[Rfam]
Nucleotides: 141
Stems, first nucleotide, its partner, number of pairs: 005061007023049003027045001030042003074134005102124003
Number, partner (000 for none) and nucleotide at each position: 001000u002000g003000u004000u005061g006060u007059g008058g009057u010056g011055g012000u013000u014000u015000c016000u017000c018000u019000a020000u021000c022000u023049g024048g025047c026000a027045g028000a029000c030042c031041u032040g033000u034000a035000a036000c037000u038000a039000u040032c041031a042030g043000a044000g045027c046000a047025g048024c049023c050000u051000g052000g053000a054000a055011c056010u057009a058008c059007c060006a061005c062000a063000g064000a065000g066000a067000u068000c069000a070000g071000a072000a073000a074134g075133g076132a077131g078130g079000g080000a081000g082000g083000c084000u085000g086000u087000g088000c089000u090000g091000a092000g093000g094000a095000c096000a097000u098000u099000u100000u101000c102124a103123g104122g105000c106000u107000c108000u109000c110000a111000g112000u113000u114000c115000u116000c117000a118000g119000c120000u121000u122104u123103u124102u125000a126000u127000u128000c129000a130078c131077c132076u133075c134074c135000u136000a137000c138000a139000g140000a141000a
This 141-nucleotide RNA sequence from Penelope pileata belongs to the Rfam family "Small nucleolar RNA SNORA12". Gene Ontology terms of the family: nucleolus and RNA processing. A reference for the family is Gu et al. (2005), "A novel experimental approach for systematic identification of box H/ACA snoRNAs from eukaryotes", Nucleic Acids Res. NCBI's taxonomy places the organism under Eukaryota, Metazoa, Sauropsida, Archelosauria, Penelope. By type it is an H/ACA-box small nucleolar RNA. Rfam's curators write: U108 belongs to the H/ACA family of snoRNAs. The sequence is predicted to guide the pseudouridylation of the U372 residue in the 28S rRNA subunit.